Shown here is an 81-nucleotide sequence from Loxodonta africana, a member of the family "Small nucleolar RNA SNORD115". NCBI's taxonomy places the organism under Eukaryota, Opisthokonta, Metazoa, Dipnotetrapodomorpha, Loxodonta. On this family, see Cavaille et al., Proc Natl Acad Sci U S A 2000: "Identification of brain-specific and imprinted small nucleolar RNA genes exhibiting an unusual genomic organization". The sequence is in the family's curated seed alignment. Pairs were carried over by alignment from the consensus structure, which was predicted with PFOLD.
RNA sequence: GGGUCAAUGAAGACACCUCAACUUGUCUCGAAGAGAGAUGAUGACAUAAAAAUCAUGCUCAAUAGGAUCCCGCUGAGGCCC
Numbered sequence: 001g002g003g004u005c006a007a008u009g010a011a012g013a014c015a016c017c018u019c020a021a022c023u024u025g026u027c028u029c030g031a032a033g034a035g036a037g038a039u040g041a042u043g044a045c046a047u048a049a050a051a052a053u054c055a056u057g058c059u060c061a062a063u064a065g066g067a068u069c070c071c072g073c074u075g076a077g078g079c080c081c
Stems, first nucleotide, its partner, number of pairs: 001081004005075002008072002